[Rfam]
RNA sequence: ACGCACCGGAUACAAGCCUGACAGUCCCACAUAUCCUGGGUGUGUUGCACACCCUGGGUUAUGUUCCAUGGCUGCAUGGCUCUGAUUGGUGCGAGAGCAGCAUUCGCCCUGAGAUUUAAGCUUCUCAGUGGGAAGCAGCACUGUUGAGUUAUGGCUCAGAGGCACAGAC
Numbered sequence: 001a002c003g004c005a006c007c008g009g010a011u012a013c014a015a016g017c018c019u020g021a022c023a024g025u026c027c028c029a030c031a032u033a034u035c036c037u038g039g040g041u042g043u044g045u046u047g048c049a050c051a052c053c054c055u056g057g058g059u060u061a062u063g064u065u066c067c068a069u070g071g072c073u074g075c076a077u078g079g080c081u082c083u084g085a086u087u088g089g090u091g092c093g094a095g096a097g098c099a100g101c102a103u104u105c106g107c108c109c110u111g112a113g114a115u116u117u118a119a120g121c122u123u124c125u126c127a128g129u130g131g132g133a134a135g136c137a138g139c140a141c142u143g144u145u146g147a148g149u150u151a152u153g154g155c156u157c158a159g160a161g162g163c164a165c166a167g168a169c
Stems, first nucleotide, its partner, number of pairs: 003092006015081004022074005030063004035058001036056001038054006106163003126143005144159006

Rfam assigns this 169-nucleotide RNA from Gouania willdenowi to the family "Small Cajal body specific RNA 1". The family's consensus secondary structure was predicted with RNAalifold. NCBI's taxonomy places the organism under Eukaryota, Bilateria, Percomorphaceae, Gobiesocoidei, Gouania. It is annotated as a small Cajal body RNA. Its family is annotated with Cajal body, RNA processing and nucleolus in the Gene Ontology. The match comes from Rfam's covariance-model search (52 bits). A reference for the family is Darzacq et al. (2002), "Cajal body-specific small nuclear RNAs: a novel class of 2'-O-methylation and pseudouridylation guide RNAs", EMBO J. Rfam's curators write: scaRNAs are a specific class of small nuclear RNAs which localise to the Cajal bodies and guide the modification of RNA polymerase II transcribed spliceosomal RNAs U1, U2, U4, U5 and U12. The family has 29 seed sequences and 715 matches in Rfam 15.1.